The record is a 98-nucleotide RNA sequence from Marivirga aurantiaca, which matches "TPP riboswitch aptamer (THI element)" in Rfam.

RNA sequence: UAUAAAUGCACGGGGUGCUGAGGUUUUUGCCAAAGCUGAGAUAAUACCCGAAACCUGAUUUGGAUAAUGCCAACGUAGGGAUGCAGUAUUAAAAUAUU
Numbered sequence: 001u002a003u004a005a006a007u008g009c010a011c012g013g014g015g016u017g018c019u020g021a022g023g024u025u026u027u028u029g030c031c032a033a034a035g036c037u038g039a040g041a042u043a044a045u046a047c048c049c050g051a052a053a054c055c056u057g058a059u060u061u062g063g064a065u066a067a068u069g070c071c072a073a074c075g076u077a078g079g080g081a082u083g084c085a086g087u088a089u090u091a092a093a094a095u096a097u098u
Stems, first nucleotide, its partner, number of pairs: 007085004011050004016044001017036003054079004060073004